A member of the RNA family "Bacterial large subunit ribosomal RNA" from Holophaga foetida, 348 nucleotides of a longer RNA. Pairs were carried over by alignment from the consensus structure, which is taken from published work.
RNA sequence: UGAGAGAACUCUGCUGAAGGAACUCGGCAAAUUAACCCCGUAACUUCGGGAGAAGGGGUGCCCCGGUAGGGUUCAUAGCCCGAGGGGGUGGCACAUAAAUGUUCCAGGCGACUGUUUAACAAAAACACAGGUCUCUGCAAACUCCAAAGAGGAGGUAUAGGGGCUGACGCCUGCCCGGUGCCGGAAGGUUCAAGAGGAGCGGUUAGCGCAAGCGAAGCCGCGAUUUUAAGCCCCGGUGAACGGCGGCCGUAACUAUAACGGUCCUAAGGUAGCGAAAUUCCUUGUCGGGUAAGUUCCGACCUGCACGAAUGGCGUAACGAUCUGGAAACUGUCUCCAGCAGAGACUCA
Numbered sequence: 001u002g003a004g005a006g007a008a009c010u011c012u013g014c015u016g017a018a019g020g021a022a023c024u025c026g027g028c029a030a031a032u033u034a035a036c037c038c039c040g041u042a043a044c045u046u047c048g049g050g051a052g053a054a055g056g057g058g059u060g061c062c063c064c065g066g067u068a069g070g071g072u073u074c075a076u077a078g079c080c081c082g083a084g085g086g087g088g089u090g091g092c093a094c095a096u097a098a099a100u101g102u103u104c105c106a107g108g109c110g111a112c113u114g115u116u117u118a119a120c121a122a123a124a125a126c127a128c129a130g131g132u133c134u135c136u137g138c139a140a141a142c143u144c145c146a147a148a149g150a151g152g153a154g155g156u157a158u159a160g161g162g163g164c165u166g167a168c169g170c171c172u173g174c175c176c177g178g179u180g181c182c183g184g185a186a187g188g189u190u191c192a193a194g195a196g197g198a199g200c201g202g203u204u205a206g207c208g209c210a211a212g213c214g215a216a217g218c219c220g221c222g223a224u225u226u227u228a229a230g231c232c233c234c235g236g237u238g239a240a241c242g243g244c245g246g247c248c249g250u251a252a253c254u255a256u257a258a259c260g261g262u263c264c265u266a267a268g269g270u271a272g273c274g275a276a277a278u279u280c281c282u283u284g285u286c287g288g289g290u291a292a293g294u295u296c297c298g299a300c301c302u303g304c305a306c307g308a309a310u311g312g313c314g315u316a317a318c319g320a321u322c323u324g325g326a327a328a329c330u331g332u333c334u335c336c337a338g339c340a341g342a343g344a345c346u347c348a
Base pairs, nucleotide, nucleotide: 001348002347003346004345009343010342011341012340013339014338015337016336018334019333020332035059036058037057038056039055044049060089061088062087063086064085067083069081070080071079072078090094102327103326104325105324106323107322108321109319110318113127114126115125130165131164132163133162134161135160136159137158138155142151143150144149168314169313170312171311173244174243175242178241179240180237181236182235183234184233187232188231189230194226195225199221200220201219202218203217206213207212245263246262247261248260249259250258264268274301284300285299286298287297288296289295